[Rfam]
RNA sequence: UGGCGAUAUGCCUAUCAGUGGAUGGCUCGGUUCGAGUGCCGAAGAAGGGCGUGCCAAGCUGCGAUAAGCUCCGGGAAGACGCAUGGAGUCUACGAUCCGGAGAUUCCCUAAUGAGACUUCUUAACACUUCGGUGUUGAUCCGUAAGGAUCGGGAACCCCCCGAAUUGAAACAUCUUAGUAGGGGGAGGAAAAGAAAUCAACCGAGAUGUCGUUAGUAGAGGCGAUCGAACACGACAGAGUUCAAACUGAAUCCCGCAAGGGAGAUGUGGUGUAGUAAGCCUACCAUCUGGAUGCCAAGGUCAAACGGAAAUCCUCUGGAAUGAGGUGCCAAAGAGGGUGAUAGCCCCGUACGUGCAAGCUGAGGUGUCCUGGUAGUGUCUUGAGUACCGCGGGUCGGAAUUCUCGCGGGAAUCUGGGGGUCAUCAACCUCCAAAACUAAAUACUACUCGAAACCGAUAGCGUAUUAGUAGCGUGAGCGAAGGCUGAAAAGUAACCCUUGAAAGGUGGUUAAAAGCGCCUGAAACUGAUAGGUGAUAGUGA
Numbered sequence: 001u002g003g004c005g006a007u008a009u010g011c012c013u014a015u016c017a018g019u020g021g022a023u024g025g026c027u028c029g030g031u032u033c034g035a036g037u038g039c040c041g042a043a044g045a046a047g048g049g050c051g052u053g054c055c056a057a058g059c060u061g062c063g064a065u066a067a068g069c070u071c072c073g074g075g076a077a078g079a080c081g082c083a084u085g086g087a088g089u090c091u092a093c094g095a096u097c098c099g100g101a102g103a104u105u106c107c108c109u110a111a112u113g114a115g116a117c118u119u120c121u122u123a124a125c126a127c128u129u130c131g132g133u134g135u136u137g138a139u140c141c142g143u144a145a146g147g148a149u150c151g152g153g154a155a156c157c158c159c160c161c162g163a164a165u166u167g168a169a170a171c172a173u174c175u176u177a178g179u180a181g182g183g184g185g186a187g188g189a190a191a192a193g194a195a196a197u198c199a200a201c202c203g204a205g206a207u208g209u210c211g212u213u214a215g216u217a218g219a220g221g222c223g224a225u226c227g228a229a230c231a232c233g234a235c236a237g238a239g240u241u242c243a244a245a246c247u248g249a250a251u252c253c254c255g256c257a258a259g260g261g262a263g264a265u266g267u268g269g270u271g272u273a274g275u276a277a278g279c280c281u282a283c284c285a286u287c288u289g290g291a292u293g294c295c296a297a298g299g300u301c302a303a304a305c306g307g308a309a310a311u312c313c314u315c316u317g318g319a320a321u322g323a324g325g326u327g328c329c330a331a332a333g334a335g336g337g338u339g340a341u342a343g344c345c346c347c348g349u350a351c352g353u354g355c356a357a358g359c360u361g362a363g364g365u366g367u368c369c370u371g372g373u374a375g376u377g378u379c380u381u382g383a384g385u386a387c388c389g390c391g392g393g394u395c396g397g398a399a400u401u402c403u404c405g406c407g408g409g410a411a412u413c414u415g416g417g418g419g420u421c422a423u424c425a426a427c428c429u430c431c432a433a434a435a436c437u438a439a440a441u442a443c444u445a446c447u448c449g450a451a452a453c454c455g456a457u458a459g460c461g462u463a464u465u466a467g468u469a470g471c472g473u474g475a476g477c478g479a480a481g482g483c484u485g486a487a488a489a490g491u492a493a494c495c496c497u498u499g500a501a502a503g504g505u506g507g508u509u510a511a512a513a514g515c516g517c518c519u520g521a522a523a524c525u526g527a528u529a530g531g532u533g534a535u536a537g538u539g540a
Stems, first nucleotide, its partner, number of pairs: 009533010024518001025483002029454002031451006038443001046109004050063003069102006078090003113122003138149004156187001157185005167174002197204002208235005218226002238437004246269003251262004280375004290368004304353003310326001312325004329333001335347003387408007415431005470477002